[Rfam]
RNA sequence: UCCCCGCUUUUCCUCCCUGAGCGGGGCCUUGAUGUGUGACAGCAAAUAGGCUUAUCGCCCCAGUCUUCGGACUGGGGUUUUUUUU
Numbered sequence: 001u002c003c004c005c006g007c008u009u010u011u012c013c014u015c016c017c018u019g020a021g022c023g024g025g026g027c028c029u030u031g032a033u034g035u036g037u038g039a040c041a042g043c044a045a046a047u048a049g050g051c052u053u054a055u056c057g058c059c060c061c062a063g064u065c066u067u068c069g070g071a072c073u074g075g076g077g078u079u080u081u082u083u084u085u
Stems, first nucleotide, its partner, number of pairs: 003025006026051004033044003058077008

The record is an 85-nucleotide sequence from Rhodoferax antarcticus, which matches "Burkholderia RNA 7 (anti-hemB)" in Rfam.
It is annotated as a small RNA.
The organism belongs to Rhodoferax antarcticus, within Bacteria.
It scores 65 bits against the family's covariance model.
Rfam's curators write: This RNA motif was identified by computational search in b-proteobacteria Burkholderia. Co-purified with Hfq, expression confirmed by Northern blot.
Its family is annotated with protein binding and bacterial biofilm matrix in the Gene Ontology.
The base pairs follow the family's consensus structure, which is taken from published work.